[Rfam]
RNA sequence: UCUAGAACUCAAGAUAUGGGCUAAACACUGAACAGUGUUUGGGAUGCAGGACAGAUUCGACUUCUCUGUUGUUGCUACCAUUUGAACUCGAAAUUGGCACUUUUAAAUCUUGGACUCCAUGAAAGUUUUAGGCCUAUAUCUUAGCUUUCCAUA
Number, nucleotide and partner (000 for none) at each position: 001u000002c000003u151004a000005g149006a148007a147008c144009u143010c000011a142012a141013g140014a139015u138016a137017u136018g135019g134020g133021c131022u130023a129024a128025a127026c000027a126028c125029u124030g000031a000032a000033c000034a000035g120036u119037g118038u000039u000040u000041g000042g117043g116044a000045u114046g000047c000048a111049g110050g109051a108052c000053a000054g104055a103056u000057u000058c000059g098060a000061c097062u096063u000064c000065u000066c000067u091068g000069u000070u000071g087072u086073u085074g000075c000076u000077a000078c000079c000080a000081u000082u000083u000084g000085a073086a072087c071088u000089c000090g000091a067092a000093a000094u000095u000096g062097g061098c059099a000100c000101u000102u000103u055104u054105a000106a000107a000108u051109c050110u049111u048112g000113g000114a045115c000116u043117c042118c037119a036120u035121g000122a000123a000124a029125g028126u027127u025128u024129u023130a022131g021132g000133c020134c019135u018136a017137u016138a015139u014140c013141u012142u011143a009144g008145c000146u000147u007148u006149c005150c000151a003152u000153a000